[Rfam]
RNA sequence: AGCCGUCUGAAGUGUUCGUAAGUUCGCUUUAUGUAUUUUGACCUAACACUCUCUGAUCAGGGAGCCCAAUAGGUUUUCUUACGGCGCAAACGUCUCUAUAGGAGGACUUGCAAACUAAGAAACAGGGCACCCACCUGUAUUUAGCAGGCCAAAAUGAUCAAGCACUUAUAAAACUACGGCACUAUGGAUUCUAU
Numbered sequence: 001a002g003c004c005g006u007c008u009g010a011a012g013u014g015u016u017c018g019u020a021a022g023u024u025c026g027c028u029u030u031a032u033g034u035a036u037u038u039u040g041a042c043c044u045a046a047c048a049c050u051c052u053c054u055g056a057u058c059a060g061g062g063a064g065c066c067c068a069a070u071a072g073g074u075u076u077u078c079u080u081a082c083g084g085c086g087c088a089a090a091c092g093u094c095u096c097u098a099u100a101g102g103a104g105g106a107c108u109u110g111c112a113a114a115c116u117a118a119g120a121a122a123c124a125g126g127g128c129a130c131c132c133a134c135c136u137g138u139a140u141u142u143a144g145c146a147g148g149c150c151a152a153a154a155u156g157a158u159c160a161a162g163c164a165c166u167u168a169u170a171a172a173a174c175u176a177c178g179g180c181a182c183u184a185u186g187g188a189u190u191c192u193a194u
Stems, first nucleotide, its partner, number of pairs: 002192001005189005011183005017178003034156003038152003042148002060132003064128004076121006088109002093105004